[Rfam]
RNA sequence: UUGCUGAGGCAAUCCCCCAUAAAAACAUUCCUUGGAAAAUCUGAACAACAUGAGCAAAAACUCACUACCAUCGUUCAAGAAGAGAAAAAGAAA
Number, nucleotide and partner (000 for none) at each position: 001u093002u092003g000004c090005u089006g000007a000008g000009g000010c000011a000012a000013u000014c000015c000016c000017c000018c000019a000020u000021a000022a000023a000024a000025a000026c000027a000028u054029u053030c052031c000032u048033u047034g046035g000036a000037a000038a000039a000040u000041c000042u000043g000044a000045a000046c034047a033048a032049c000050a000051u000052g030053a029054g028055c000056a000057a000058a000059a000060a000061c000062u000063c000064a000065c000066u000067a000068c000069c000070a000071u000072c000073g000074u000075u000076c000077a000078a000079g000080a000081a000082g000083a000084g000085a000086a000087a000088a000089a005090g004091a000092a002093a001